RNA sequence: GUGUGUCUGUGUGGAUGGCGUUCAGCAACAAGGACAGGUAUGUUUGCAUCUGUAUGUGUGUGUGGAUGGCGUUCAGCACCAAGGACAGAUAUGUUCGCGG
Numbered sequence: 001g002u003g004u005g006u007c008u009g010u011g012u013g014g015a016u017g018g019c020g021u022u023c024a025g026c027a028a029c030a031a032g033g034a035c036a037g038g039u040a041u042g043u044u045u046g047c048a049u050c051u052g053u054a055u056g057u058g059u060g061u062g063u064g065g066a067u068g069g070c071g072u073u074c075a076g077c078a079c080c081a082a083g084g085a086c087a088g089a090u091a092u093g094u095u096c097g098c099g100g
Base pairs, nucleotide, nucleotide: 004091005090006089007088008087009086010085016081017080018079020077021076022075024073025072026071029068030067032061034059035058036057038055039054040053041052042051

The record is a 100-nucleotide RNA sequence from Branchiostoma belcheri, which matches "mir-2060 microRNA precursor family" in Rfam. NCBI's taxonomy places the organism under Eukaryota, Metazoa, Amphioxiformes, Branchiostomatidae, Branchiostoma.